[Rfam]
RNA: mir-1759 microRNA precursor family
RNA sequence: GCUGUUCUAGGGCAGGAGGAGAGAGGUGUUACCUUAUCAGCUGCCACCUCUUACAUCCUCUCCUCUGCAGAAGC
Numbered sequence: 001g002c003u004g005u006u007c008u009a010g011g012g013c014a015g016g017a018g019g020a021g022a023g024a025g026g027u028g029u030u031a032c033c034u035u036a037u038c039a040g041c042u043g044c045c046a047c048c049u050c051u052u053a054c055a056u057c058c059u060c061u062c063c064u065c066u067g068c069a070g071a072a073g074c
Base pairs, nucleotide, nucleotide: 001074002073003072005070006069008067009066010065011063012062014059015058016057017056018054021052022051023050024049025048026047027046028045030043031042033040034039